[Rfam]
RNA: Iron response element II
Organism: Araneus ventricosus
RNA sequence: UGUUUUUCAGAUUCAGUGAAGUCUAAAAACG
Numbered sequence: 001u002g003u004u005u006u007u008c009a010g011a012u013u014c015a016g017u018g019a020a021g022u023c024u025a026a027a028a029a030c031g
Stems, first nucleotide, its partner, number of pairs: 001031007009024005014018001